[Rfam]
RNA sequence: ACGUGGGACACCCUUCCCCAACGAAGGGCGCUUAUCUGAAAGGGUAGCUACA
Numbered sequence: 001a002c003g004u005g006g007g008a009c010a011c012c013c014u015u016c017c018c019c020a021a022c023g024a025a026g027g028g029c030g031c032u033u034a035u036c037u038g039a040a041a042g043g044g045u046a047g048c049u050a051c052a
Stems, first nucleotide, its partner, number of pairs: 011028006032047006
A member of the RNA family "serC leader", 52 nucleotides long. Rfam describes the family as follows. This family is a putative regulatory RNA structure that is found upstream of the serC-serA operon in some alpha-proteobacteria. The final stem of the structure overlaps the ribosome binding site of the serC reading frame. Gene Ontology term of the family: regulation of gene expression.